This 102-nucleotide RNA from Cytobacillus horneckiae belongs to the Rfam family "Purine riboswitch aptamer". NCBI's taxonomy places the organism under Bacteria, Bacillota, Bacilli, Caryophanales, Cytobacillus. The family's consensus secondary structure is taken from published work.
RNA sequence: AAUAAGAGAUAAAAAUAUCUUCGUAUAAUAAUGGGAAUAUGGCCCAUAAGUAUCUACCAAGUUACCGUAAAUAACUUGACUACGUGGUAUGUGCAUUUGACA
Numbered sequence: 001a002a003u004a005a006g007a008g009a010u011a012a013a014a015a016u017a018u019c020u021u022c023g024u025a026u027a028a029u030a031a032u033g034g035g036a037a038u039a040u041g042g043c044c045c046a047u048a049a050g051u052a053u054c055u056a057c058c059a060a061g062u063u064a065c066c067g068u069a070a071a072u073a074a075c076u077u078g079a080c081u082a083c084g085u086g087g088u089a090u091g092u093g094c095a096u097u098u099g100a101c102a
Stems, first nucleotide, its partner, number of pairs: 019087002022084004029049001031047005058078007